Rfam assigns this 127-nucleotide RNA sequence from Oleiphilus sp. HI0066 to the family "RtT RNA". The family's consensus secondary structure is taken from published work. It scores 46 bits against the family's covariance model. On this family, see Bosl and Kersten, Nucleic Acids Res 1991: "A novel RNA product of the tyrT operon of Escherichia coli". The family has 57 seed sequences and 651 matches in Rfam 15.1. The organism belongs to Oleiphilus, within Bacteria. The family's RNA type in Rfam is cis-regulatory element. This family represents a bacterial cis-regulatory element known as RtT RNA. The exact function of RtT is unknown although it is thought that it may be involved in changing the cellular response in relation to amino acid starvation.
RNA sequence: CUGAAGGGCGGGCCAUUCUGGAUGAGAGCCUGAGAGGUUCGAGCCGAGCACACAGUGCGAGACAACGUCGACGGAACGGCGACGACCCGAAGGGAGAGCGACGCGAAUCAUCCUGAAGGGCGGGCCA
Numbered sequence: 001c002u003g004a005a006g007g008g009c010g011g012g013c014c015a016u017u018c019u020g021g022a023u024g025a026g027a028g029c030c031u032g033a034g035a036g037g038u039u040c041g042a043g044c045c046g047a048g049c050a051c052a053c054a055g056u057g058c059g060a061g062a063c064a065a066c067g068u069c070g071a072c073g074g075a076a077c078g079g080c081g082a083c084g085a086c087c088c089g090a091a092g093g094g095a096g097a098g099c100g101a102c103g104c105g106a107a108u109c110a111u112c113c114u115g116a117a118g119g120g121c122g123g124g125c126c127a
Base pairs, nucleotide, nucleotide: 016117017116018115020113021112023110038091039090040089041088045059046058066084067083068082069081070080072079